[Rfam]
A member of the RNA family "Giant, ornate, lake- and Lactobacillales-derived (GOLLD) RNA" from Levilactobacillus brevis, 413 nucleotides long. Rfam's curators put it in the seed alignment. Lineage of the source: Bacteria > Bacillati > Bacillota > Lactobacillales > Levilactobacillus brevis.
RNA sequence: CGGCCCAGUGAAGCAUUUGCUUUCUCAAAAGGAAAGCGAACUUCUGGCGAAGCACUGGGUUCCGAAUAAGAUGAAUUAUUCCUAGCUAAGGAAUAGUAUGUUAAACCAUUAAAUAUAACAUUAUCUAAAAUGCAAAAGUCUUCGCCUGCUGUAUCUGAAAGUAGUCUAAUGCUCCACACACAAGGGGUGUGAAUGGAGCGUCGAUGAACUCGCAAGGUGAUUCGAUUCAGUAGCGAGUAGUGCAACCGAGUGGGUAGCUCCCAUUUAGUGAAUCGAAAGCUGCUGAGUAGGAUGCAGUAUGAACGGGUGGAACUCCUUCCACCGACUAUGGCAGUUACACGAGGGAUCGUGUGGAAACGCGACUAAGAAAUAAGGUCGUUAAAGACUGCUGCUAACGGAUGUAUUCUCAAUCU
Numbered sequence: 001c002g003g004c005c006c007a008g009u010g011a012a013g014c015a016u017u018u019g020c021u022u023u024c025u026c027a028a029a030a031g032g033a034a035a036g037c038g039a040a041c042u043u044c045u046g047g048c049g050a051a052g053c054a055c056u057g058g059g060u061u062c063c064g065a066a067u068a069a070g071a072u073g074a075a076u077u078a079u080u081c082c083u084a085g086c087u088a089a090g091g092a093a094u095a096g097u098a099u100g101u102u103a104a105a106c107c108a109u110u111a112a113a114u115a116u117a118a119c120a121u122u123a124u125c126u127a128a129a130a131u132g133c134a135a136a137a138g139u140c141u142u143c144g145c146c147u148g149c150u151g152u153a154u155c156u157g158a159a160a161g162u163a164g165u166c167u168a169a170u171g172c173u174c175c176a177c178a179c180a181c182a183a184g185g186g187g188u189g190u191g192a193a194u195g196g197a198g199c200g201u202c203g204a205u206g207a208a209c210u211c212g213c214a215a216g217g218u219g220a221u222u223c224g225a226u227u228c229a230g231u232a233g234c235g236a237g238u239a240g241u242g243c244a245a246c247c248g249a250g251u252g253g254g255u256a257g258c259u260c261c262c263a264u265u266u267a268g269u270g271a272a273u274c275g276a277a278a279g280c281u282g283c284u285g286a287g288u289a290g291g292a293u294g295c296a297g298u299a300u301g302a303a304c305g306g307g308u309g310g311a312a313c314u315c316c317u318u319c320c321a322c323c324g325a326c327u328a329u330g331g332c333a334g335u336u337a338c339a340c341g342a343g344g345g346a347u348c349g350u351g352u353g354g355a356a357a358c359g360c361g362a363c364u365a366a367g368a369a370a371u372a373a374g375g376u377c378g379u380u381a382a383a384g385a386c387u388g389c390u391g392c393u394a395a396c397g398g399a400u401g402u403a404u405u406c407u408c409a410a411u412c413u
Base pairs, nucleotide, nucleotide: 002061003060004059005058006057007056008055009054010044011043012042013041017039018038019037020036021035022034023033024032025031046146047145048144049143050142051141052140132213133212147299148298149297150296151295152294153293154292155291156290162328163327164326165325166324171199172198173197174196175195176194177191178190179189180188181187200226201225202224203223204222208218209217210216229284230283231282232281233280241270242269243268306323307322308321309320310319311318330390331389332388333387334386335385336353337352338351339350340349341348342347354406355405356404359379360378361377362376363375364374398412399411400410
Dot-bracket structure: .((((((((((((...(((((((((.....))))))))).)))).[[[[[[[.))))))))......................................................................{{......]]]]]]]((((((((((.....[[[[[....(((((((((((.....)))))..))))))(((((...(((.}}..)))...)))))..(((((.......(((........................))).........))))).....))))))))))......((((((......))))))]]]]].(((((((((((((....)))))))[[[..((((((.........)))))).....)))))).......(((...]]]...))).